[Rfam]
RNA sequence: CUAGUAUGAGGGCAACACAUCGCGGCGGGAGCAAGACUAUGUAUUGGGAUGAUGCAGUAAUAUUCGGGUUGGUCACCGUCGGCAUGAUGAUUGUUUUCAUGGCCGGUUGGGUGGGUUUCAUUGUCCGCGAUCAUCGUCGUAAAAAGUAGGUUUAUCAGUCGUCAGGGAGGAGGCCGAAGUAAAACCUGAAUUCAGGCAACCAAGGCUUCCAGUCGCCGGUUCUUCGGAGCCGGCAUUUUUUU
Numbered sequence: 001c002u003a004g005u006a007u008g009a010g011g012g013c014a015a016c017a018c019a020u021c022g023c024g025g026c027g028g029g030a031g032c033a034a035g036a037c038u039a040u041g042u043a044u045u046g047g048g049a050u051g052a053u054g055c056a057g058u059a060a061u062a063u064u065c066g067g068g069u070u071g072g073u074c075a076c077c078g079u080c081g082g083c084a085u086g087a088u089g090a091u092u093g094u095u096u097u098c099a100u101g102g103c104c105g106g107u108u109g110g111g112u113g114g115g116u117u118u119c120a121u122u123g124u125c126c127g128c129g130a131u132c133a134u135c136g137u138c139g140u141a142a143a144a145a146g147u148a149g150g151u152u153u154a155u156c157a158g159u160c161g162u163c164a165g166g167g168a169g170g171a172g173g174c175c176g177a178a179g180u181a182a183a184a185c186c187u188g189a190a191u192u193c194a195g196g197c198a199a200c201c202a203a204g205g206c207u208u209c210c211a212g213u214c215g216c217c218g219g220u221u222c223u224u225c226g227g228a229g230c231c232g233g234c235a236u237u238u239u240u241u242u
Base pairs, nucleotide, nucleotide: 011104012103013102054064081092082091169210170209172208216233217232218231219230220229221228222227
A member of the RNA family "PhrS" from Vreelandella subglaciescola, 242 nucleotides long.
The family's consensus secondary structure was predicted with CMfinder.
The match comes from Rfam's covariance-model search (37 bits).
For this family Rfam cites "Detection of small RNAs in Pseudomonas aeruginosa by RNomics and structure-based bioinformatic tools" (Sonnleitner et al., Microbiology, 2008).